[Rfam]
RNA sequence: AUAAUGAGACAUCCGUAACUCGCGGUCCGGCCAUAAUGAAGGCGGGAAGGUGAAAUUCCUAUGG
Numbered sequence: 001a002u003a004a005u006g007a008g009a010c011a012u013c014c015g016u017a018a019c020u021c022g023c024g025g026u027c028c029g030g031c032c033a034u035a036a037u038g039a040a041g042g043c044g045g046g047a048a049g050g051u052g053a054a055a056u057u058c059c060u061a062u063g064g
Base pairs, nucleotide, nucleotide: 012061013025014024015023016022026047027046028045030043031042032041048060049059050058